[Rfam]
This 219-nucleotide sequence from Streptomyces fumanus belongs to the Rfam family "Actinobacteria sRNA Ms_IGR-5". The family's RNA type in Rfam is small RNA.
RNA sequence: ACUUCGGGAAGGAGGUGGUUCGGCAGAUGUAUGGAUACCGGACGGAAGAGGUGGCUGCGGGCUAGCGGCCCGUCACCACAUCGAGUGCGGUGCCGGACCAGCGUGUGCGCGAUGCACGCAGCCGGCCAAUCCCACGCAGUCACCCGACCCGCGAGUCGCCGGUACGUCCGGCCGGCUUCUCCCCUCCGGGGGAGGGACCUGACUCGCGGGUCGUCUGCG
Numbered sequence: 001a002c003u004u005c006g007g008g009a010a011g012g013a014g015g016u017g018g019u020u021c022g023g024c025a026g027a028u029g030u031a032u033g034g035a036u037a038c039c040g041g042a043c044g045g046a047a048g049a050g051g052u053g054g055c056u057g058c059g060g061g062c063u064a065g066c067g068g069c070c071c072g073u074c075a076c077c078a079c080a081u082c083g084a085g086u087g088c089g090g091u092g093c094c095g096g097a098c099c100a101g102c103g104u105g106u107g108c109g110c111g112a113u114g115c116a117c118g119c120a121g122c123c124g125g126c127c128a129a130u131c132c133c134a135c136g137c138a139g140u141c142a143c144c145c146g147a148c149c150c151g152c153g154a155g156u157c158g159c160c161g162g163u164a165c166g167u168c169c170g171g172c173c174g175g176c177u178u179c180u181c182c183c184c185u186c187c188g189g190g191g192g193a194g195g196g197a198c199c200u201g202a203c204u205c206g207c208g209g210g211u212c213g214u215c216u217g218c219g
Base pairs, nucleotide, nucleotide: 015058016057017056018055019054060127061126062125063124065122066121068119069118145213146212147211148210149209150208151207152206153205154204155203156202157201158176159175160174161173162172163171
The match comes from Rfam's covariance-model search (87 bits). Taxonomically the source falls in Streptomyces (Bacteria, Actinomycetota, Kitasatosporales, Streptomycetaceae).